[Rfam]
Nucleotides: 082
Base pairs, nucleotide, nucleotide: 010076011075012074013073014072015071016070018068019067020066022064023063024062027059028058029057030056031055032054033053035051036050
Number, partner (000 for none) and nucleotide at each position: 001000g002000u003000g004000a005000u006000g007000c008000u009000u010076u011075u012074c013073g014072u015071u016070u017000c018068a019067g020066a021000a022064u023063u024062c025000a026000a027059a028058c029057g030056c031055u032054u033053u034000g035051c036050c037000u038000u039000u040000c041000a042000a043000a044000u045000g046000a047000a048000c049000c050036g051035g052000u053033a054032a055031a056030g057029c058028g059027u060000a061000g062024g063023a064022a065000u066020u067019c068018u069000a070016a071015a072014a073013c074012g075011a076010a077000c078000g079000g080000c081000g082000c

A member of the RNA family "mir-927 microRNA precursor family" from Coptotermes formosanus, 82 nucleotides long. Gene Ontology terms of the family: RISC complex and miRNA-mediated post-transcriptional gene silencing. The family's consensus secondary structure was predicted with RNAalifold. For this family Rfam cites "Evolutionary flux of canonical microRNAs and mirtrons in Drosophila" (Berezikov et al., Nat Genet, 2010).